Shown here is a 74-nucleotide RNA sequence from Acidithiobacillus ferrooxidans, a member of the family "tRNA". It is annotated as a transfer RNA. From the family's description: Transfer RNA (tRNA) molecules are approximately 80 nucleotides in length. Pairs were carried over by alignment from the consensus structure, which is taken from published work.
RNA sequence: GGGCCUGUAGCUCAGUUGGUUAGAGCAGGGGACUCAUAAUCCCUUGGUCCACGGUUCGAGUCCGUGCGGGCCCA
Numbered sequence: 001g002g003g004c005c006u007g008u009a010g011c012u013c014a015g016u017u018g019g020u021u022a023g024a025g026c027a028g029g030g031g032a033c034u035c036a037u038a039a040u041c042c043c044u045u046g047g048u049c050c051a052c053g054g055u056u057c058g059a060g061u062c063c064g065u066g067c068g069g070g071c072c073c074a
Stems, first nucleotide, its partner, number of pairs: 001073007010026004028044005050066005